[Rfam]
RNA sequence: AAUGACUAUUAAAAACACACUGGGCCUUCUACAAGACCCUUUUAGCAAUUUUUGGCAUUCCUAAAGAGAUUUGGGGAA
Numbered sequence: 001a002a003u004g005a006c007u008a009u010u011a012a013a014a015a016c017a018c019a020c021u022g023g024g025c026c027u028u029c030u031a032c033a034a035g036a037c038c039c040u041u042u043u044a045g046c047a048a049u050u051u052u053u054g055g056c057a058u059u060c061c062u063a064a065a066g067a068g069a070u071u072u073g074g075g076g077a078a
Stems, first nucleotide, its partner, number of pairs: 022039003026035003058077008
Shown here is a 78-nucleotide RNA sequence from Caenorhabditis angaria, a member of the family "SmY spliceosomal RNA". Lineage of the source: Eukaryota > Opisthokonta > Eumetazoa > Rhabditoidea > Caenorhabditis. The family's RNA type in Rfam is spliceosomal small nuclear RNA.